This 110-nucleotide sequence from Peribacillus deserti belongs to the Rfam family "epsC RNA". NCBI's taxonomy places the organism under Bacteria, Bacillati, Bacillota, Bacillaceae, Peribacillus. Pairs were carried over by alignment from the consensus structure, which is taken from published work. Rfam 15.1 lists 450 matches to the family in 334 species. It scores 107 bits against the family's covariance model. By type it is a cis-regulatory element.
[Rfam]
RNA sequence: AGGUGAUGCCUCCUUACCUCUAUCAAAGGAGACACUCGGUCAUACUGUGGGUAUUUAAUCCUUAGACGCUUGUCGUCGCUAGUAUGGUGUGAGGCUGGGUUAGAUGCCCA
Numbered sequence: 001a002g003g004u005g006a007u008g009c010c011u012c013c014u015u016a017c018c019u020c021u022a023u024c025a026a027a028g029g030a031g032a033c034a035c036u037c038g039g040u041c042a043u044a045c046u047g048u049g050g051g052u053a054u055u056u057a058a059u060c061c062u063u064a065g066a067c068g069c070u071u072g073u074c075g076u077c078g079c080u081a082g083u084a085u086g087g088u089g090u091g092a093g094g095c096u097g098g099g100u101u102a103g104a105u106g107c108c109c110a
Stems, first nucleotide, its partner, number of pairs: 001019004007034002010031004035093004039088008049062003065077004096110005